RNA sequence: CCUUUGGAGCGUUAUAUCAAACGAAAGUAGUCUUAGUAAAAACUAAUACAAAAUCGGACGUGUUGAAUUAGGAA
Number, nucleotide and partner (000 for none) at each position: 001c072002c071003u070004u000005u000006g000007g000008a000009g061010c060011g059012u058013u057014a000015u000016a000017u000018c000019a000020a000021a000022c056023g055024a054025a000026a000027g000028u000029a000030g049031u048032c000033u000034u000035a044036g043037u000038a000039a000040a000041a000042a000043c036044u035045a000046a000047u000048a031049c030050a000051a000052a000053a000054u024055c023056g022057g013058a012059c011060g010061u009062g000063u000064u000065g000066a000067a000068u000069u000070a003071g002072g001073a000074a000
The family of this 74-nucleotide RNA sequence is "RAGATH-18 RNA".
Rfam's curators put it in the seed alignment.
By type it is a small RNA.
About the family: Actinobacteria, Firmicutes, Fusobacteria, Thermotogae (1 example).